[Rfam]
RNA sequence: AAAUAUUUUUUCGAUAUAAAACACUCAUGUCGAUAAAGCGGUUUGAGUCUCUU
Numbered sequence: 001a002a003a004u005a006u007u008u009u010u011u012c013g014a015u016a017u018a019a020a021a022c023a024c025u026c027a028u029g030u031c032g033a034u035a036a037a038g039c040g041g042u043u044u045g046a047g048u049c050u051c052u053u
Base pairs, nucleotide, nucleotide: 011033012032013031014030015029016028017027

Plastid-atpF group II-D1 intron: a 53-nucleotide RNA from Gossypium anomalum. A reference for the family is Richter et al. (2023), "Retrograde signaling in plants: A critical review focusing on the GUN pathway and beyond", Plant Commun. Plastid atpF is a non-coding RNA (ncRNA) recognised in plastids. It has been reported in the intron group II-D1 region of ATP synthase (atpF) genes. A search with the family's covariance model found it, with a score of 58 bits. Taxonomically the source falls in Gossypium (Eukaryota, Viridiplantae, rosids, malvids). The family's consensus secondary structure was predicted with LocARNA.